Overview
This 148-nucleotide sequence from Populus deltoides belongs to the Rfam family "MIR2912 microRNA precursor family". Its family is annotated with RISC complex and miRNA-mediated post-transcriptional gene silencing in the Gene Ontology.
RNA sequence: UCUAGAACUCAAGAUAUGAGUUGAAAACCGAACAGUGUUUGAGCUGCAGGACAGGUUCCGACUUCUCCGUUGUUGCUAAGAUUUGAACUUGCAAAUGGCUGAAUUAAGUCUUAAACUCUUUUUUAGGUCUAUGUCUUAUCUUUCCAUC
Numbered sequence: 001u002c003u004a005g006a007a008c009u010c011a012a013g014a015u016a017u018g019a020g021u022u023g024a025a026a027a028c029c030g031a032a033c034a035g036u037g038u039u040u041g042a043g044c045u046g047c048a049g050g051a052c053a054g055g056u057u058c059c060g061a062c063u064u065c066u067c068c069g070u071u072g073u074u075g076c077u078a079a080g081a082u083u084u085g086a087a088c089u090u091g092c093a094a095a096u097g098g099c100u101g102a103a104u105u106a107a108g109u110c111u112u113a114a115a116c117u118c119u120u121u122u123u124u125a126g127g128u129c130u131a132u133g134u135c136u137u138a139u140c141u142u143u144c145c146a147u148c
Base pairs, nucleotide, nucleotide: 003146005144006143007142009138011137012136013135014134015133016132017131018130020128021126022125023124024123025122027121037120041118042117043116045115048112049111050110051109052108054105055104056103057102058101060099062098063097072088073087074086